Overview: Rfam assigns this 118-nucleotide sequence from Cicer arietinum to the family "MIR390 microRNA precursor family". For this family Rfam cites "ASRP: the Arabidopsis Small RNA Project Database" (Gustafson et al., Nucleic Acids Res, 2005). The family's consensus secondary structure was predicted with WAR. NCBI's taxonomy places the organism under Eukaryota, Viridiplantae, Streptophyta, Magnoliopsida, Cicer.
RNA sequence: UGCUAGAAUCUGUAAAGCUCGGGAGGGAUAGCGCCAUAGAAUAUCUUCAAUUUCUCUUCUUUGUUGUUAUAUUGAUUUUCUCUAGCGCUAUCCAUCCUGAGUUUCAUGGCUUCUUCAU
Numbered sequence: 001u002g003c004u005a006g007a008a009u010c011u012g013u014a015a016a017g018c019u020c021g022g023g024a025g026g027g028a029u030a031g032c033g034c035c036a037u038a039g040a041a042u043a044u045c046u047u048c049a050a051u052u053u054c055u056c057u058u059c060u061u062u063g064u065u066g067u068u069a070u071a072u073u074g075a076u077u078u079u080c081u082c083u084a085g086c087g088c089u090a091u092c093c094a095u096c097c098u099g100a101g102u103u104u105c106a107u108g109g110c111u112u113c114u115u116c117a118u
Base pairs, nucleotide, nucleotide: 010109016103017102018101019100020099021098022097023096024095026093027092028091029090030089031088032087033086034085